Notes
Rfam assigns this 126-nucleotide sequence from Rattus norvegicus to the family "Small nucleolar RNA SNORA28". About the family: ACA28 is a member of the H/ACA class of snoRNA that guide the sites of modification of uridines to pseudouridines. It is annotated as an H/ACA-box small nucleolar RNA. The family has 26 seed sequences and 922 matches in Rfam 15.1. Rfam's curators put it in the seed alignment. For this family Rfam cites "RNomics: an experimental approach that identifies 201 candidates for novel, small, non-messenger RNAs in mouse" (Huttenhofer et al., EMBO J, 2001). The family's consensus secondary structure was predicted with RNAfold. Taxonomically the source falls in Rattus (Eukaryota, Eumetazoa, Tetrapoda, Muridae).
[Rfam]
RNA sequence: AAGCAACACUCUGUGGCAGAUGAACAAAACUGUCUGACACAAUUUGAGCUUGCUAUAGCAAAUAAGUCUAACCUAUUCCGGUGUUCUCUUCUCUGUGAGACAAGCCGUUAUAUAGGCUCAAACAAA
Numbered sequence: 001a002a003g004c005a006a007c008a009c010u011c012u013g014u015g016g017c018a019g020a021u022g023a024a025c026a027a028a029a030c031u032g033u034c035u036g037a038c039a040c041a042a043u044u045u046g047a048g049c050u051u052g053c054u055a056u057a058g059c060a061a062a063u064a065a066g067u068c069u070a071a072c073c074u075a076u077u078c079c080g081g082u083g084u085u086c087u088c089u090u091c092u093c094u095g096u097g098a099g100a101c102a103a104g105c106c107g108u109u110a111u112a113u114a115g116g117c118u119c120a121a122a123c124a125a126a
Stems, first nucleotide, its partner, number of pairs: 009048003012041004017036006065118006074112003079107004087100004